This 104-nucleotide sequence from Grimontia hollisae belongs to the Rfam family "Alpha operon ribosome binding site". Its family is annotated with ribosome binding in the Gene Ontology. Rfam classes the family as a cis-regulatory element. The match comes from Rfam's covariance-model search (90 bits).
Nucleotides: 104
Base pairs, nucleotide, nucleotide: 004047006045008043009042010041011040012039013038021088022087023086027079028078029077030076036102037101
Number, partner (000 for none) and nucleotide at each position: 001000g002000u003000g004047g005000u006045a007000u008043g009042g010041c011040c012039g013038c014000u015000g016000c017000g018000u019000a020000u021088c022087c023086u024000a025000a026000a027079c028078g029077g030076g031000c032000u033000u034000u035000g036102c037101a038013g039012c040011g041010g042009u043008u044000c045006u046000u047004c048000u049000u050000g051000a052000u053000a054000a055000a056000g057000u058000a059000c060000u061000a062000g063000g064000a065000g066000u067000g068000a069000a070000u071000a072000g073000u074000g075000g076030c077029c078028c079027g080000u081000a082000u083000u084000g085000c086023a087022g088021g089000c090000a091000u092000u093000a094000a095000c096000a097000u098000u099000c100000c101037u102036g103000a104000u

Rfam's curators write: The bacterial alpha operon ribosome binding site is surrounded by this complex pseudoknotted structure. Translation of the mRNA produces 4 ribosomal protein products, one of which (S4) acts as a translational repressor by binding to the nested pseudoknot region. The mechanism of repression is thought to involve a conformational switch in the pseudoknot region and ribosome entrapment.